[Rfam]
RNA sequence: GACGAGAAGGGCAAACCCGUUGCAAGGCGGGGACGCAAAGCCACGGGACCGCCUCGGUCAGCCGGGCUACCGAAC
Numbered sequence: 001g002a003c004g005a006g007a008a009g010g011g012c013a014a015a016c017c018c019g020u021u022g023c024a025a026g027g028c029g030g031g032g033a034c035g036c037a038a039a040g041c042c043a044c045g046g047g048a049c050c051g052c053c054u055c056g057g058u059c060a061g062c063c064g065g066g067c068u069a070c071c072g073a074a075c
Stems, first nucleotide, its partner, number of pairs: 001075001003072002011036002016031006034061001039068004044064003047059003
c-di-GMP-I-GGC riboswitch aptamer: a 75-nucleotide RNA sequence from Nocardioides panacis.
Lineage of the source: Bacteria > Bacillati > Actinomycetes > Propionibacteriales > Nocardioides.
The match comes from Rfam's covariance-model search (68 bits).
Its Rfam clan is "c-di-GMP_I riboswitch clan".